[Rfam]
RNA sequence: GACUAGCGAUCGCCAGGACAGAAGCGGGGGACCCACCUUUCCGCCGGACGUCGCCACCACGGUGGCCGUCCUUGGGGUGAAGUCGGCCGCGUGUAUCCGCGCGUCGACCGGGCUUCCCGGCCCGAACCCGACAGCUAACCUCGCAGGCGUAUGGGAAGGAUCA
Numbered sequence: 001g002a003c004u005a006g007c008g009a010u011c012g013c014c015a016g017g018a019c020a021g022a023a024g025c026g027g028g029g030g031a032c033c034c035a036c037c038u039u040u041c042c043g044c045c046g047g048a049c050g051u052c053g054c055c056a057c058c059a060c061g062g063u064g065g066c067c068g069u070c071c072u073u074g075g076g077g078u079g080a081a082g083u084c085g086g087c088c089g090c091g092u093g094u095a096u097c098c099g100c101g102c103g104u105c106g107a108c109c110g111g112g113c114u115u116c117c118c119g120g121c122c123c124g125a126a127c128c129c130g131a132c133a134g135c136u137a138a139c140c141u142c143g144c145a146g147g148c149g150u151a152u153g154g155g156a157a158g159g160a161u162c163a
Base pairs, nucleotide, nucleotide: 024144025143026142027141028140029139034074035073075129076128077127083107084106085105086104110123111122112121113120
Rfam assigns this 163-nucleotide RNA sequence from Candidatus Protofrankia datiscae to the family "c-di-AMP riboswitch aptamer (ydaO/yuaA leader)". Lineage of the source: Bacteria > Bacillati > Actinomycetota > Actinomycetes > Protofrankia. This family represents a conserved RNA structure found upstream of the ydaO and yuaA genes in Bacillus subtilis and related genes in other bacteria. Pairs were carried over by alignment from the consensus structure. Rfam links the family to the GO terms regulation of gene expression and cyclic-di-AMP binding.